[Rfam]
RNA sequence: GGAGUGAGUCGAACGGUCGCUGGAGGCGGGGUAGCCCGCCUCUGGAGGAAAGUCCGGGCUCCACAGGACACGGUGGUGGGUAACGCCCACCGUUCGCAAGAACAGGGACAGUGCCACAGAAAACAAACCGCCGAUGGCCUCACGGCACAGGCAAGGGUGAAAAGGUGCGGUAAGAGCGCACCGCGAUCCUGGCGACAGGGUCGGCACGGUAAACCCCACCGGGAGCAAGACCAAGCAGGACGCAAUGCGGGGCGUUUCGGCGCCACGCAUCGGGAGCGGUUCGUUCCCGUAGGACGUCCGGGUAGGUCGCAUCGAGGCGUCAGGCAACUGCCGCCCCAGAGAAAUGGCCGUUCUCGACAGAACCCGGCUUACAGACUCACUCCGGAU
Numbered sequence: 001g002g003a004g005u006g007a008g009u010c011g012a013a014c015g016g017u018c019g020c021u022g023g024a025g026g027c028g029g030g031g032u033a034g035c036c037c038g039c040c041u042c043u044g045g046a047g048g049a050a051a052g053u054c055c056g057g058g059c060u061c062c063a064c065a066g067g068a069c070a071c072g073g074u075g076g077u078g079g080g081u082a083a084c085g086c087c088c089a090c091c092g093u094u095c096g097c098a099a100g101a102a103c104a105g106g107g108a109c110a111g112u113g114c115c116a117c118a119g120a121a122a123a124c125a126a127a128c129c130g131c132c133g134a135u136g137g138c139c140u141c142a143c144g145g146c147a148c149a150g151g152c153a154a155g156g157g158u159g160a161a162a163a164g165g166u167g168c169g170g171u172a173a174g175a176g177c178g179c180a181c182c183g184c185g186a187u188c189c190u191g192g193c194g195a196c197a198g199g200g201u202c203g204g205c206a207c208g209g210u211a212a213a214c215c216c217c218a219c220c221g222g223g224a225g226c227a228a229g230a231c232c233a234a235g236c237a238g239g240a241c242g243c244a245a246u247g248c249g250g251g252g253c254g255u256u257u258c259g260g261c262g263c264c265a266c267g268c269a270u271c272g273g274g275a276g277c278g279g280u281u282c283g284u285u286c287c288c289g290u291a292g293g294a295c296g297u298c299c300g301g302g303u304a305g306g307u308c309g310c311a312u313c314g315a316g317g318c319g320u321c322a323g324g325c326a327a328c329u330g331c332c333g334c335c336c337c338a339g340a341g342a343a344a345u346g347g348c349c350g351u352u353c354u355c356g357a358c359a360g361a362a363c364c365c366g367g368c369u370u371a372c373a374g375a376c377u378c379a380c381u382c383c384g385g386a387u
Stems, first nucleotide, its partner, number of pairs: 001383010011372001012352007020045009050370003054367005059225004066282004071221005076090005091105001092103004106216002111214002113210003128156002130152003135147002138144001164182006183205001184203008229308004238299005273287005316335004321330003